[Rfam]
RNA: Early nodulin 40
RNA sequence: AUGGAGGCAGAUUGGGAAGAACACAUCCAUGGGCAUUAAAAGCAUUGGCAAUGGAGUGAGGUUAUACCUCAACCUCACUUUAACAGUUCGUCUGAGCUCAGUCACUGGCUGCUGCUAACUACAGCAACUUCAUAUCCAGAGGUAGCAGAGGGUUGGCUAGUGCUUAGCAAACCGGCAAGUCACAAAUCGGCAUGGACUCACACUCUGUGAUGAGUCUU
Numbered sequence: 001a002u003g004g005a006g007g008c009a010g011a012u013u014g015g016g017a018a019g020a021a022c023a024c025a026u027c028c029a030u031g032g033g034c035a036u037u038a039a040a041a042g043c044a045u046u047g048g049c050a051a052u053g054g055a056g057u058g059a060g061g062u063u064a065u066a067c068c069u070c071a072a073c074c075u076c077a078c079u080u081u082a083a084c085a086g087u088u089c090g091u092c093u094g095a096g097c098u099c100a101g102u103c104a105c106u107g108g109c110u111g112c113u114g115c116u117a118a119c120u121a122c123a124g125c126a127a128c129u130u131c132a133u134a135u136c137c138a139g140a141g142g143u144a145g146c147a148g149a150g151g152g153u154u155g156g157c158u159a160g161u162g163c164u165u166a167g168c169a170a171a172c173c174g175g176c177a178a179g180u181c182a183c184a185a186a187u188c189g190g191c192a193u194g195g196a197c198u199c200a201c202a203c204u205c206u207g208u209g210a211u212g213a214g215u216c217u218u
Stems, first nucleotide, its partner, number of pairs: 053074002086172003090168002103162006195216005